mir-551 microRNA precursor family: a 74-nucleotide RNA from Anhinga rufa. The family's consensus secondary structure was predicted with RNAalifold. Rfam links the family to the GO terms RISC complex and miRNA-mediated post-transcriptional gene silencing.
[Rfam]
RNA sequence: CGACCUUGGAAAUCAAGUAUAGGUGGAGCCUGUGGGUGUGAUUCGAGGCGACCCAUACUUGGUUUCAAGGGUCA
Numbered sequence: 001c002g003a004c005c006u007u008g009g010a011a012a013u014c015a016a017g018u019a020u021a022g023g024u025g026g027a028g029c030c031u032g033u034g035g036g037u038g039u040g041a042u043u044c045g046a047g048g049c050g051a052c053c054c055a056u057a058c059u060u061g062g063u064u065u066c067a068a069g070g071g072u073c074a
Base pairs, nucleotide, nucleotide: 002073003072004071005070006069007068009066010065011064012063013062014061016059017058022053023052024051028049029048030047031046
Dot-bracket structure: .((((((.((((((.((....(((...((((..............)))).)))....)).)))))).)))))).